The family of this 67-nucleotide sequence from Cnephaeus nilssonii is "mir-9256 microRNA precursor family". Gene Ontology terms of the family: miRNA-mediated post-transcriptional gene silencing and RISC complex.

RNA sequence: CACCACACUGAGUGGCCAGAUUAUUAUGCACUCAGAGAUCAUAAUAAUCUGGCCACUCAGUGUAUAU
Numbered sequence: 001c002a003c004c005a006c007a008c009u010g011a012g013u014g015g016c017c018a019g020a021u022u023a024u025u026a027u028g029c030a031c032u033c034a035g036a037g038a039u040c041a042u043a044a045u046a047a048u049c050u051g052g053c054c055a056c057u058c059a060g061u062g063u064a065u066a067u
Stems, first nucleotide, its partner, number of pairs: 005063013019049010